[Rfam]
Shown here is a 94-nucleotide RNA sequence from Oncorhynchus tshawytscha, a member of the family "Vault RNA". The match comes from Rfam's covariance-model search (48 bits). The source organism's lineage runs through Eukaryota, Craniata, Actinopterygii, Salmoniformes and Oncorhynchus. It is annotated as a non-coding RNA gene.
RNA sequence: GCGCUGGUGUACCAGUGGUUACUUCAAAAUUUCUCUAUCAGAAAUGUUCUGUACCCUGCAAAGGGUUCGAACCACGGGGCUGUCCAGUGUUUUG
Numbered sequence: 001g002c003g004c005u006g007g008u009g010u011a012c013c014a015g016u017g018g019u020u021a022c023u024u025c026a027a028a029a030u031u032u033c034u035c036u037a038u039c040a041g042a043a044a045u046g047u048u049c050u051g052u053a054c055c056c057u058g059c060a061a062a063g064g065g066u067u068c069g070a071a072c073c074a075c076g077g078g079g080c081u082g083u084c085c086a087g088u089g090u091u092u093u094g
Base pairs, nucleotide, nucleotide: 002089003088004087005086006085007084012078013077015075016074017073018072023071024070025069027067
Dot-bracket structure: .((((((....((.((((....(((.(.......................................).))))))).)).....)))))).....